The family of this 108-nucleotide RNA is "TPP riboswitch aptamer (THI element)". The base pairs follow the family's consensus structure, which is taken from published work.
RNA sequence: AAGUGACUCACGGGAGCCCGGUGCACCGGGCUGAGAGGGGGGCUGCAGCCCCCGACCGUCGAACCUGAUCCGGGUAAUGCCGGCGCAGGGAGGAGUGUUGCCGUGCCG
Number, nucleotide and partner (000 for none) at each position: 001a000002a000003g000004u000005g000006a096007c095008u094009c093010a000011c058012g057013g000014g000015a000016g031017c030018c029019c028020g027021g000022u000023g000024c000025a000026c000027c020028g019029g018030g017031c016032u000033g000034a000035g000036a000037g000038g053039g052040g051041g050042g049043c000044u000045g000046c000047a000048g000049c042050c041051c040052c039053c038054g000055a000056c000057c012058g011059u000060c000061g000062a000063a000064c089065c088066u087067g086068a000069u000070c083071c082072g081073g080074g000075u000076a000077a000078u000079g000080c073081c072082g071083g070084c000085g000086c067087a066088g065089g064090g000091a000092g000093g009094a008095g007096u006097g000098u000099u000100g000101c000102c000103g000104u000105g000106c000107c000108g000